A member of the RNA family "Small nucleolar RNA SNORD125" from Aegotheles bennettii, 102 nucleotides long.
RNA sequence: GCUGGGAAGAGCCUCACAUGAUGACCCUUCUCUCUCUGAUGGCUGUGUUGAUGAUCAUCAAACCAAAGCCUCUAAGAAGUUGGCUGAGGAGGCCGUUCCCAU
Numbered sequence: 001g002c003u004g005g006g007a008a009g010a011g012c013c014u015c016a017c018a019u020g021a022u023g024a025c026c027c028u029u030c031u032c033u034c035u036c037u038g039a040u041g042g043c044u045g046u047g048u049u050g051a052u053g054a055u056c057a058u059c060a061a062a063c064c065a066a067a068g069c070c071u072c073u074a075a076g077a078a079g080u081u082g083g084c085u086g087a088g089g090a091g092g093c094c095g096u097u098c099c100c101a102u
Stems, first nucleotide, its partner, number of pairs: 007097002011093005